[Rfam]
This 154-nucleotide RNA from Kosakonia radicincitans belongs to the Rfam family "EFASI RNA". The organism belongs to Kosakonia radicincitans, within Bacteria. Rfam classes the family as a small RNA. The sequence is in the family's curated seed alignment.
RNA sequence: UCGACACGAUAUCGAUGGCGACACCAGUCAACCAACUGGUGUGUGGAAGCAGACUGAUUAACAUCAGCCCGGUGAAAACCGCGAACAGGUCAGAGACCUGGGGAGCUUCGCAAUAACUCAACAUUUCGCCGCCCCGAUGCACAGAUAUCUGUCG
Numbered sequence: 001u002c003g004a005c006a007c008g009a010u011a012u013c014g015a016u017g018g019c020g021a022c023a024c025c026a027g028u029c030a031a032c033c034a035a036c037u038g039g040u041g042u043g044u045g046g047a048a049g050c051a052g053a054c055u056g057a058u059u060a061a062c063a064u065c066a067g068c069c070c071g072g073u074g075a076a077a078a079c080c081g082c083g084a085a086c087a088g089g090u091c092a093g094a095g096a097c098c099u100g101g102g103g104a105g106c107u108u109c110g111c112a113a114u115a116a117c118u119c120a121a122c123a124u125u126u127c128g129c130c131g132c133c134c135c136g137a138u139g140c141a142c143a144g145a146u147a148u149c150u151g152u153c154g
Stems, first nucleotide, its partner, number of pairs: 002154004008149006019045002021042008046109004054067005086102001087099005